The family of this 111-nucleotide RNA from Rhodoplanes serenus is "EcpR1". Its family is annotated with mRNA binding, negative regulation of cell cycle and regulation of translation in response to stress in the Gene Ontology. A reference for the family is Wilms et al. (2012), "Deep sequencing uncovers numerous small RNAs on all four replicons of the plant pathogen Agrobacterium tumefaciens", RNA Biol. Perviously named SmelC291, SmrC10, or Sra33. According to its overproduction phenotype it was renamed Elongated Cell Phenotype RNA1. Induced by stress,EcpR1 negatively regulates cell cycle master regulatory genes dnaA and gcrA at post-transcriptional level by base pairing between its strongly conserved GC-rich loop and the target mRNAs. It's regulation is hfq-independent but requires RNase E to regulate dnaA. NCBI's taxonomy places the organism under Bacteria, Pseudomonadati, Pseudomonadota, Alphaproteobacteria, Rhodoplanes.
[Rfam]
RNA sequence: CAACCCUACGGAGUGCUCAGGUCCGCCGCAUCUCCUGGGUCCGUGGGGUUUGGCCGGCCGGUGAGCGGUGCGAGUGGCCUCCUCAUAACACUGCUCCCGGCCGGCCUCUUU
Numbered sequence: 001c002a003a004c005c006c007u008a009c010g011g012a013g014u015g016c017u018c019a020g021g022u023c024c025g026c027c028g029c030a031u032c033u034c035c036u037g038g039g040u041c042c043g044u045g046g047g048g049u050u051u052g053g054c055c056g057g058c059c060g061g062u063g064a065g066c067g068g069u070g071c072g073a074g075u076g077g078c079c080u081c082c083u084c085a086u087a088a089c090a091c092u093g094c095u096c097c098c099g100g101c102c103g104g105c106c107u108c109u110u111u
Base pairs, nucleotide, nucleotide: 003049004048005047006046007045008044009043010042016039017038018037019036020035021034052106053105054104055103056102057101058100059099060098061097